[Rfam]
RNA sequence: UGAGUGGGUGGGACGAUCGCUGGUGGUACGAGUUAUCACUGGAGGAAAGUCCGGGCUCCGCAGGACAGGAUGGUCGAUAACGUCGACCGGCCGUGAGGUUAGGGAAAGUGCAACAGAGAGUAGACCGCCGAACGGCGCUUUCGAGCGUGCGUGGUAAGGCUGAAACGGUGCGGUAAGAGCGCACCAGCGUUCGUGGUGACACGAUCGGCUCGGUAAACCCCAUCCGGAGCUAGACCAAACAGAAUGAAGCGGCGGUCCGUCGCGUUCCAUCAUUCGGGUAGGUCGCAAUUGAGGCGGCGAGCAAUCGUCGUGCACAGAUAAAUGAUCGUUGGCGAAAGUGCAAACUUUCGUUACAGAACCCGGCUUACAAACCCACUCGCCGU
Numbered sequence: 001u002g003a004g005u006g007g008g009u010g011g012g013a014c015g016a017u018c019g020c021u022g023g024u025g026g027u028a029c030g031a032g033u034u035a036u037c038a039c040u041g042g043a044g045g046a047a048a049g050u051c052c053g054g055g056c057u058c059c060g061c062a063g064g065a066c067a068g069g070a071u072g073g074u075c076g077a078u079a080a081c082g083u084c085g086a087c088c089g090g091c092c093g094u095g096a097g098g099u100u101a102g103g104g105a106a107a108g109u110g111c112a113a114c115a116g117a118g119a120g121u122a123g124a125c126c127g128c129c130g131a132a133c134g135g136c137g138c139u140u141u142c143g144a145g146c147g148u149g150c151g152u153g154g155u156a157a158g159g160c161u162g163a164a165a166c167g168g169u170g171c172g173g174u175a176a177g178a179g180c181g182c183a184c185c186a187g188c189g190u191u192c193g194u195g196g197u198g199a200c201a202c203g204a205u206c207g208g209c210u211c212g213g214u215a216a217a218c219c220c221c222a223u224c225c226g227g228a229g230c231u232a233g234a235c236c237a238a239a240c241a242g243a244a245u246g247a248a249g250c251g252g253c254g255g256u257c258c259g260u261c262g263c264g265u266u267c268c269a270u271c272a273u274u275c276g277g278g279u280a281g282g283u284c285g286c287a288a289u290u291g292a293g294g295c296g297g298c299g300a301g302c303a304a305u306c307g308u309c310g311u312g313c314a315c316a317g318a319u320a321a322a323u324g325a326u327c328g329u330u331g332g333c334g335a336a337a338g339u340g341c342a343a344a345c346u347u348u349c350g351u352u353a354c355a356g357a358a359c360c361c362g363g364c365u366u367a368c369a370a371a372c373c374c375a376c377u378c379g380c381c382g383u
Base pairs, nucleotide, nucleotide: 001379002378003377004376005375006374007373008372009371011368012330013329014328015327016326017325018324020042021041022040023039024038025037026036027035028034047366048365049364051363052362053361054360055359056229057228058227059226063263068225069224070223071222072221073087074086075085076084077083088102089100090099091098092097103220104219108218109217110214111213125159126158127155128154129153134148167185168184169183170182171181172180187209188207189206191204192203193202194201195200233284234283235282236281242275243274244273245272246271247270254268255267258264293313294311295310296309297308298307299306300305